[Rfam]
RNA sequence: GGGCAAUUAGCUCAGUUGGUAGAGCGUUCGCUUUGCAUUUACUCCCGCUUGCGAAAGGUCGUGAUUUCGAUUAUCACAUUGUCCA
Numbered sequence: 001g002g003g004c005a006a007u008u009a010g011c012u013c014a015g016u017u018g019g020u021a022g023a024g025c026g027u028u029c030g031c032u033u034u035g036c037a038u039u040u041a042c043u044c045c046c047g048c049u050u051g052c053g054a055a056a057g058g059u060c061g062u063g064a065u066u067u068c069g070a071u072u073a074u075c076a077c078a079u080u081g082u083c084c085a
Stems, first nucleotide, its partner, number of pairs: 001084007010025004027055005061077005